[Rfam]
RNA sequence: CAUAGUGAUGAAUUAAAUCACAAUUGUCACUACCUCUGAGGCAUUUUUCUUUGUGUUUUGAGCUCUCUGGUUUUAAAUAAAGCCUUGUG
Number, nucleotide and partner (000 for none) at each position: 001c000002a000003u000004a031005g030006u029007g028008a027009u026010g000011a000012a000013u000014u000015a000016a000017a000018u000019c000020a000021c000022a000023a000024u000025u000026g009027u008028c007029a006030c005031u004032a000033c000034c000035u000036c000037u000038g000039a000040g000041g000042c000043a000044u000045u000046u000047u000048u000049c000050u000051u000052u000053g000054u000055g000056u000057u000058u000059u000060g000061a000062g000063c000064u000065c000066u000067c000068u000069g000070g000071u000072u000073u080074u079075a000076a000077a000078u000079a074080a073081a000082g000083c000084c000085u000086u000087g000088u000089g000
This 89-nucleotide RNA from Arabis nemorensis belongs to the Rfam family "Small nucleolar RNA snoR17". The literature on the family includes a 2001 paper in RNA by Brown et al., "Multiple snoRNA gene clusters from Arabidopsis". NCBI's taxonomy places the organism under Eukaryota, Gunneridae, Pentapetalae, malvids, Arabis. It scores 68 bits against the family's covariance model. Rfam 15.1 lists 32 matches to the family in 14 species. Rfam classes the family as a C/D-box small nucleolar RNA.